[Rfam]
Nucleotides: 083
Stems, first nucleotide, its partner, number of pairs: 001082007010025004027043005059075005
Number, partner (000 for none) and nucleotide at each position: 001082g002081c003080g004079g005078c006077c007076g008000u009000g010025g011024u012023g013022g014000a015000a016000u017000g018000g019000c020000a021000g022013u023012c024011a025010c026000g027043c028042g029041g030040c031039g032000c033000u034000u035000a036000g037000g038000c039031c040030g041029c042028c043027g044000u045000g046000g047000g048000a049000g050000a051000a052000a053000u054000c055000c056000c057000g058000u059075g060074u061073g062072g063071g064000u065000u066000c067000g068000a069000a070000u071063c072062c073061c074060a075059c076007c077006g078005g079004c080003c081002g082001c083000a
A member of the RNA family "tRNA" from Streptomyces sp. Act143, 83 nucleotides long. The base pairs follow the family's consensus structure, which is taken from published work. Rfam classes the family as a transfer RNA.